This 84-nucleotide RNA sequence from Ornithorhynchus anatinus belongs to the Rfam family "mir-1420 microRNA precursor family".
The family's consensus secondary structure was predicted with RNAalifold.
RNA sequence: UGCUCAACCCUGUCUAUCUGGCCUGGGAGCACUCUUGAUUUAAAAAAAAAAAGUGCAACCAGAUUGGAUGAAGUUGGUUGGGAC
Numbered sequence: 001u002g003c004u005c006a007a008c009c010c011u012g013u014c015u016a017u018c019u020g021g022c023c024u025g026g027g028a029g030c031a032c033u034c035u036u037g038a039u040u041u042a043a044a045a046a047a048a049a050a051a052a053g054u055g056c057a058a059c060c061a062g063a064u065u066g067g068a069u070g071a072a073g074u075u076g077g078u079u080g081g082g083a084c
Base pairs, nucleotide, nucleotide: 003082004081005080006079007078008077009076013072015070016069017068018067019066020065021064023062024061025060026059029056030055031054032053033052035050036049
A search with the family's covariance model found it, with a score of 72 bits. Its family is annotated with RISC complex and miRNA-mediated post-transcriptional gene silencing in the Gene Ontology.